[Rfam]
RNA sequence: UGGAGGACUGAGAAGGUUGAACAGCUUGUGUCGUGCUGUUAUAACUGGUUAUAACCUCCAAGAAUAACACACAAACCACACUGUUAUAUCUCUCUGAUCUAAGCAGAGUAGAUAGAUGUGUUAGUGGCACAUUUU
Numbered sequence: 001u002g003g004a005g006g007a008c009u010g011a012g013a014a015g016g017u018u019g020a021a022c023a024g025c026u027u028g029u030g031u032c033g034u035g036c037u038g039u040u041a042u043a044a045c046u047g048g049u050u051a052u053a054a055c056c057u058c059c060a061a062g063a064a065u066a067a068c069a070c071a072c073a074a075a076c077c078a079c080a081c082u083g084u085u086a087u088a089u090c091u092c093u094c095u096g097a098u099c100u101a102a103g104c105a106g107a108g109u110a111g112a113u114a115g116a117u118g119u120g121u122u123a124g125u126g127g128c129a130c131a132u133u134u135u
Stems, first nucleotide, its partner, number of pairs: 002059005015046004020040006079126003083122001086119003095112001099106001
The family of this 135-nucleotide sequence from Amphiprion percula is "Small nucleolar RNA SNORA47".
A search with the family's covariance model found it, with a score of 64 bits.
It is annotated as an H/ACA-box small nucleolar RNA.
Gene Ontology terms of the family: RNA processing and nucleolus.
Lineage of the source: Eukaryota > Opisthokonta > Chordata > Ovalentaria > Amphiprion.